[Rfam]
About this RNA: The family of this 76-nucleotide RNA sequence from Thauera sp. 27 is "DUF3085 RNA". The source organism's lineage runs through Bacteria, Pseudomonadati, Pseudomonadota, Rhodocyclales and Thauera. Pairs were carried over by alignment from the consensus structure, which is taken from published work. It scores 63 bits against the family's covariance model.
RNA sequence: CGGUAGCUGGAUCCGACCGGGGAGCAAUCCCGAACCCAGCCCACUGUCCGCUCAGGAUAAUCAACCCACCUUUGGG
Number, nucleotide and partner (000 for none) at each position: 001c019002g018003g017004u016005a000006g040007c039008u038009g037010g036011a000012u000013c000014c000015g000016a004017c003018c002019g001020g031021g030022g029023a028024g000025c000026a000027a000028u023029c022030c021031c020032g000033a000034a000035c000036c010037c009038a008039g007040c006041c000042c000043a000044c000045u000046g058047u057048c056049c055050g000051c000052u000053c000054a000055g049056g048057a047058u046059a000060a000061u000062c000063a000064a000065c000066c000067c000068a000069c000070c000071u000072u000073u000074g000075g000076g000